[Rfam]
RNA sequence: UCCGGGGCGACCCGGAAUCUGAAGGAAGCUGUAAGCAAAGUCCCGGCCCGACGAACAGGAAUCGCAUAUGAGGCAGCCACAUCUGGGCGAGAGGGCUAAGAGACUCAAAACCCGAUUACCAUCCGGAAGGUGUGGAAGUAGAUGCGGCGGGUGUAUGGGAUGAAGGUCACGCGA
Dot-bracket structure: ((((((....)))))).............(((..((...(((((((((((...........((((((.....((..(((((((.(((...(((..........)))....)))...............)))))))..))..)))))))))))...))))))....))...))).
RNA: Group II catalytic intron D1-D4-3
Organism: Geotalea uraniireducens